[Rfam]
RNA sequence: UGUCAAAACGGAGGCUGCAGCUUUAAUUAGUAAUCUUUUCUUUAUUUUUGAGGAAAUUGAAAGAUGAAAGGUAAAGUUGCCGAAGAAAAUAGCAACCUCAAUUGUUGUUUUCUGGGCGUAGGGAUAAUAUCUUUACGACUGUCACAUUAUAAUGUGGAGUGCCGUUUGCCAC
Numbered sequence: 001u002g003u004c005a006a007a008a009c010g011g012a013g014g015c016u017g018c019a020g021c022u023u024u025a026a027u028u029a030g031u032a033a034u035c036u037u038u039u040c041u042u043u044a045u046u047u048u049u050g051a052g053g054a055a056a057u058u059g060a061a062a063g064a065u066g067a068a069a070g071g072u073a074a075a076g077u078u079g080c081c082g083a084a085g086a087a088a089a090u091a092g093c094a095a096c097c098u099c100a101a102u103u104g105u106u107g108u109u110u111u112c113u114g115g116g117c118g119u120a121g122g123g124a125u126a127a128u129a130u131c132u133u134u135a136c137g138a139c140u141g142u143c144a145c146a147u148u149a150u151a152a153u154g155u156g157g158a159g160u161g162c163c164g165u166u167u168g169c170c171a172c
Stems, first nucleotide, its partner, number of pairs: 006167006017080009033065007084113012114140002117137008142157006
RNA: Lysine riboswitch aptamer